[Rfam]
A member of the RNA family "Streptomyces RNA 1601" from Streptomyces longwoodensis, 209 nucleotides long. Rfam's curators write: Identified by deep sequencing of transcriptome at the end of exponential growth phase. Appears longer on northern blot than sequencing transcript. Streptomyces specific.

RNA sequence: GACGACCGGCCGGACACCAGCGUGCUCGGCCCACAAGUGGAGGCUCCGAACUCCCACCUGACGCCCCCAGGGCGGCGGGUCAUCCGGUCAGACGGCCGCCAUCGUUCCGUACGGACGAUGGAGCGCCGUCCGAAAGCGCGCCCCGCGGUCUCGCGGCGGUGCUCCGGUAGUGCGAGGAGCCCCGUCUGUGAUCGUCCGGGGCAUUUUUU
Numbered sequence: 001g002a003c004g005a006c007c008g009g010c011c012g013g014a015c016a017c018c019a020g021c022g023u024g025c026u027c028g029g030c031c032c033a034c035a036a037g038u039g040g041a042g043g044c045u046c047c048g049a050a051c052u053c054c055c056a057c058c059u060g061a062c063g064c065c066c067c068c069a070g071g072g073c074g075g076c077g078g079g080u081c082a083u084c085c086g087g088u089c090a091g092a093c094g095g096c097c098g099c100c101a102u103c104g105u106u107c108c109g110u111a112c113g114g115a116c117g118a119u120g121g122a123g124c125g126c127c128g129u130c131c132g133a134a135a136g137c138g139c140g141c142c143c144c145g146c147g148g149u150c151u152c153g154c155g156g157c158g159g160u161g162c163u164c165c166g167g168u169a170g171u172g173c174g175a176g177g178a179g180c181c182c183c184g185u186c187u188g189u190g191a192u193c194g195u196c197c198g199g200g201g202c203a204u205u206u207u208u209u
Stems, first nucleotide, its partner, number of pairs: 004089006012027002028081005034060002037057004041052002062074005091130005099121008140202006146194003152190003155186005161180005
Dot-bracket structure: ...((((((..((............))(((((.((.((((((........)).)))).)).(((((...)))))..)))))..)))))).(((((...((((((((.......))))))))....))))).........(((((((((...((((((((.(((((..........))))).))))).))).)))..)))))).......
Rfam classes the family as a small RNA. It scores 181 bits against the family's covariance model. NCBI's taxonomy places the organism under Bacteria, Actinomycetota, Actinomycetes, Streptomycetaceae, Streptomyces. For this family Rfam cites "Deep sequencing-based identification of small non-coding RNAs in Streptomyces coelicolor" (Vockenhuber et al., RNA Biol, 2011).